[Rfam]
RNA sequence: UUCGGUCCUCGGUAGUGGUUCCCGGCAACAGUGCGCUCACGCGCCAGACCUGUUCCGUGAACCUCGAUCGAAGACCGCC
Numbered sequence: 001u002u003c004g005g006u007c008c009u010c011g012g013u014a015g016u017g018g019u020u021c022c023c024g025g026c027a028a029c030a031g032u033g034c035g036c037u038c039a040c041g042c043g044c045c046a047g048a049c050c051u052g053u054u055c056c057g058u059g060a061a062c063c064u065c066g067a068u069c070g071a072a073g074a075c076c077g078c079c
Base pairs, nucleotide, nucleotide: 003077004076005075006074007073009071010070011069012068013067017063018062019061020060021059023057024056025055027054028053029052030051
RNA: Actino-pnp RNA